Shown here is a 125-nucleotide RNA from Rhizobium etli, a member of the family "Alphaproteobacterial ar14". NCBI's taxonomy places the organism under Bacteria, Alphaproteobacteria, Rhizobiaceae, Rhizobium, Rhizobium etli bv. mimosae. Rfam's curators put it in the seed alignment.
RNA sequence: GUGUUUCAGGCGACCCAUUCCUCCUCCCAAAGGGCGCCUGACGGAACAGCGGCACUCCUCCUCCCAGCCGUUGUUCAAUUCUUUCGAAAAGCCUGCCGCACCUCCUCCCGCGGCAGGCUUUUUCG
Numbered sequence: 001g002u003g004u005u006u007c008a009g010g011c012g013a014c015c016c017a018u019u020c021c022u023c024c025u026c027c028c029a030a031a032g033g034g035c036g037c038c039u040g041a042c043g044g045a046a047c048a049g050c051g052g053c054a055c056u057c058c059u060c061c062u063c064c065c066a067g068c069c070g071u072u073g074u075u076c077a078a079u080u081c082u083u084u085c086g087a088a089a090a091g092c093c094u095g096c097c098g099c100a101c102c103u104c105c106u107c108c109c110g111c112g113g114c115a116g117g118c119u120u121u122u123u124c125g
Stems, first nucleotide, its partner, number of pairs: 007040006014033002044076010089120011